[Rfam]
RNA sequence: AACAGAAUUAUGUACCGCGCACAUUACUUAGGUGGGUUCCAGAAAGUCACAUAGGAG
Numbered sequence: 001a002a003c004a005g006a007a008u009u010a011u012g013u014a015c016c017g018c019g020c021a022c023a024u025u026a027c028u029u030a031g032g033u034g035g036g037u038u039c040c041a042g043a044a045a046g047u048c049a050c051a052u053a054g055g056a057g
Stems, first nucleotide, its partner, number of pairs: 019037002022034004